[Rfam]
RNA sequence: GCGUCUGUUUAGCUACGCGGUUACUUCUCAUCUCUCGAACAGAUGAUUAUCUGCUCUACGCAGGUUCGAACCGCUGGCGCGGUCUGACGUUUUC
Numbered sequence: 001g002c003g004u005c006u007g008u009u010u011a012g013c014u015a016c017g018c019g020g021u022u023a024c025u026u027c028u029c030a031u032c033u034c035u036c037g038a039a040c041a042g043a044u045g046a047u048u049a050u051c052u053g054c055u056c057u058a059c060g061c062a063g064g065u066u067c068g069a070a071c072c073g074c075u076g077g078c079g080c081g082g083u084c085u086g087a088c089g090u091u092u093u094c
Stems, first nucleotide, its partner, number of pairs: 002089004007084001012078004017074004025070003